[Rfam]
RNA sequence: AGACGAUGCUUAUGCAUCCCUCAGCCUGAACGACUCCUGGAGAUCAACUGCUUCUUAUAUAAUCCUUAUCCAUAACUUACU
Numbered sequence: 001a002g003a004c005g006a007u008g009c010u011u012a013u014g015c016a017u018c019c020c021u022c023a024g025c026c027u028g029a030a031c032g033a034c035u036c037c038u039g040g041a042g043a044u045c046a047a048c049u050g051c052u053u054c055u056u057a058u059a060u061a062a063u064c065c066u067u068a069u070c071c072a073u074a075a076c077u078u079a080c081u
Base pairs, nucleotide, nucleotide: 002019005018006017007016008015009014023053024052026050028048032044034042035041036040
Record summary: The record is an 81-nucleotide RNA from Legionella pneumophila, which matches "Legionella RNA 69" in Rfam. On this family, see Weissenmayer et al., PLoS One 2011: "Sequencing illustrates the transcriptional response of Legionella pneumophila during infection and identifies seventy novel small non-coding RNAs". From the family's description: Identified by strand specific sequencing of the transcriptional response during broth growth and during infection inside the host.